Rfam assigns this 60-nucleotide RNA sequence from Neisseria wadsworthii to the family "porB RNA". Lineage of the source: Bacteria > Pseudomonadati > Pseudomonadota > Neisseria > Neisseria wadsworthii. By type it is a small RNA.
[Rfam]
RNA sequence: CAUUUAUAUUAGCAGUCAUGGAAUCGCCGUUAAUGGCGGUGAAUUCAAAACUUAGACGAA
Numbered sequence: 001c002a003u004u005u006a007u008a009u010u011a012g013c014a015g016u017c018a019u020g021g022a023a024u025c026g027c028c029g030u031u032a033a034u035g036g037c038g039g040u041g042a043a044u045u046c047a048a049a050a051c052u053u054a055g056a057c058g059a060a
Base pairs, nucleotide, nucleotide: 023040024039025038026037027036028035029034